[Rfam]
This 167-nucleotide sequence from Cytobacillus horneckiae belongs to the Rfam family "glmS glucosamine-6-phosphate activated ribozyme aptamer".
Its family is annotated with catalytic activity and regulation of gene expression in the Gene Ontology.
It is annotated as a riboswitch.
NCBI's taxonomy places the organism under Bacteria, Bacillota, Bacilli, Caryophanales, Cytobacillus.
RNA sequence: UUAAUAAUUAAAGCGCCCGGGCUAAUCUGAGGACGACACAUGGAUUAGUUGACGAGGAGGAGGUUUAUCGAAGCAUCGGCGGGUACCUCCCGGUUGCAGCACAACCGAAAUCAUUUCUUUAAAACGUUGGGGCAACCUGACGCACAAAGAGAAAUGAAUGUGCAAAA
Number, nucleotide and partner (000 for none) at each position: 001u000002u000003a000004a000005u000006a000007a000008u000009u000010a000011a000012a000013g000014c000015g000016c000017c000018c000019g000020g050021g049022c048023u047024a046025a045026u044027c043028u000029g000030a000031g000032g000033a000034c000035g000036a000037c000038a000039c000040a000041u000042g000043g027044a026045u025046u024047a023048g022049u021050u020051g000052a000053c000054g000055a000056g000057g000058a000059g090060g089061a088062g087063g086064u000065u000066u000067a000068u079069c078070g077071a076072a000073g000074c000075a000076u071077c070078g069079g068080c000081g000082g000083g000084u000085a000086c063087c062088u061089c060090c059091c107092g106093g105094u104095u103096g102097c000098a000099g000100c000101a000102c096103a095104a094105c093106c092107g091108a000109a000110a000111u157112c156113a155114u154115u153116u152117c151118u000119u000120u000121a000122a000123a000124a000125c142126g141127u140128u139129g138130g137131g136132g000133c000134a000135a000136c131137c130138u129139g128140a127141c126142g125143c000144a000145c000146a000147a000148a000149g000150a000151g117152a116153a115154a114155u113156g112157a111158a000159u000160g000161u000162g000163c000164a000165a000166a000167a000